Description
This 225-nucleotide RNA from Candidatus Scalindua rubra belongs to the Rfam family "Group II catalytic intron D1-D4-6". Gene Ontology term of the family: Group II intron splicing. Rfam's curators write: Group II introns are found in rRNA, tRNA and mRNA of organelles in fungi, plants and protists, and also in mRNA in bacteria. The pairing is the family consensus, mapped onto this sequence. For this family Rfam cites "Control of branch-site choice by a group II intron" (Chu et al., EMBO J, 2001).
RNA sequence: AAAGUCUCCCCAAGGAAAACAGUGCCAGCUCUGUAUCCUAGAUCGAGUUUUGGGUCUACAGAGGUAACAAUGUGGGCUAAGCGUAAACAGAGAGAGGGGCAGGCCGAGUGAUUGAGUCUCGUAAUCCCUAAGAAUGGAAUGGCCGACGUGGUCGCUUUAGCGGAAGGCUAUAUUGAUAGAAGCGAAACUGGCUGCUUCUAACAGCAUUUCCGGGAUCGAAGAGCU
Numbered sequence: 001a002a003a004g005u006c007u008c009c010c011c012a013a014g015g016a017a018a019a020c021a022g023u024g025c026c027a028g029c030u031c032u033g034u035a036u037c038c039u040a041g042a043u044c045g046a047g048u049u050u051u052g053g054g055u056c057u058a059c060a061g062a063g064g065u066a067a068c069a070a071u072g073u074g075g076g077c078u079a080a081g082c083g084u085a086a087a088c089a090g091a092g093a094g095a096g097g098g099g100c101a102g103g104c105c106g107a108g109u110g111a112u113u114g115a116g117u118c119u120c121g122u123a124a125u126c127c128c129u130a131a132g133a134a135u136g137g138a139a140u141g142g143c144c145g146a147c148g149u150g151g152u153c154g155c156u157u158u159a160g161c162g163g164a165a166g167g168c169u170a171u172a173u174u175g176a177u178a179g180a181a182g183c184g185a186a187a188c189u190g191g192c193u194g195c196u197u198c199u200a201a202c203a204g205c206a207u208u209u210c211c212g213g214g215a216u217c218g219a220a221g222a223g224c225u
Stems, first nucleotide, its partner, number of pairs: 013039004019034004029190001043091002047088004051083002053078008063068001113219001114217001116216006136210006142168003147162003173204003177200007
Dot-bracket structure: ............((((..((((......[.)))).))))...((..((((((((((((((..(....)..))))))))...)).)))).)).....................((.((((((..............(((((((((..(((..........)))...)))....(((.(((((((......]...))))))).)))))))))))))))).)......